MIR528 microRNA precursor family: an 89-nucleotide RNA sequence from Aegilops tauschii.
[Rfam]
RNA sequence: GUGGAAGGGGCAUGCAGAGGAGCGGCCAUGGCCCAUGGGAGCUUUGCUUGCCUUGCCUCUCGCUCUCUCCUGUGCCUGCCUCUUCCAUU
Numbered sequence: 001g002u003g004g005a006a007g008g009g010g011c012a013u014g015c016a017g018a019g020g021a022g023c024g025g026c027c028a029u030g031g032c033c034c035a036u037g038g039g040a041g042c043u044u045u046g047c048u049u050g051c052c053u054u055g056c057c058u059c060u061c062g063c064u065c066u067c068u069c070c071u072g073u074g075c076c077u078g079c080c081u082c083u084u085c086c087a088u089u
Stems, first nucleotide, its partner, number of pairs: 001088012014075003018071002020067003024064002